[Rfam]
RNA sequence: GAAGCAUCAGUGAUGAACAAUCUCAAUUUUGUUAUCCUUGCACUUUGAUUGUCAGUGAAGAAAAUAAUGGGGAAUGAUUGCUCUGAGAUGCUA
Numbered sequence: 001g002a003a004g005c006a007u008c009a010g011u012g013a014u015g016a017a018c019a020a021u022c023u024c025a026a027u028u029u030u031g032u033u034a035u036c037c038u039u040g041c042a043c044u045u046u047g048a049u050u051g052u053c054a055g056u057g058a059a060g061a062a063a064a065u066a067a068u069g070g071g072g073a074a075u076g077a078u079u080g081c082u083c084u085g086a087g088a089u090g091c092u093a
Stems, first nucleotide, its partner, number of pairs: 003092006
RNA: Small nucleolar RNA snoR26
Organism: Lupinus albus